RNA sequence: GGUCUGCAGGCAGUGGAGUUAGCUGGUUGUAUCCCAAACCCCACAAUCACUAACUUCACUGCCAGCAAAAC
Numbered sequence: 001g002g003u004c005u006g007c008a009g010g011c012a013g014u015g016g017a018g019u020u021a022g023c024u025g026g027u028u029g030u031a032u033c034c035c036a037a038a039c040c041c042c043a044c045a046a047u048c049a050c051u052a053a054c055u056u057c058a059c060u061g062c063c064a065g066c067a068a069a070a071c
Stems, first nucleotide, its partner, number of pairs: 003069001005067002009063002012060011024049007